[Rfam]
RNA sequence: GCGUCGUCGAAGGGGUGCCAUACUAUAUGGGCUGAGAUCAUACCCUUACUACUUGAUGCGGGUAAUGCCGCCGUAAGAAAAACGAAUGUUAGAUGGAU
Numbered sequence: 001g002c003g004u005c006g007u008c009g010a011a012g013g014g015g016u017g018c019c020a021u022a023c024u025a026u027a028u029g030g031g032c033u034g035a036g037a038u039c040a041u042a043c044c045c046u047u048a049c050u051a052c053u054u055g056a057u058g059c060g061g062g063u064a065a066u067g068c069c070g071c072c073g074u075a076a077g078a079a080a081a082a083c084g085a086a087u088g089u090u091a092g093a094u095g096g097a098u
Stems, first nucleotide, its partner, number of pairs: 007085003011046004016040001017032002019029003052077004058071004
The record is a 98-nucleotide RNA sequence from Parabacteroides distasonis, which matches "TPP riboswitch aptamer (THI element)" in Rfam. Lineage of the source: Bacteria > Pseudomonadati > Bacteroidia > Tannerellaceae > Parabacteroides distasonis.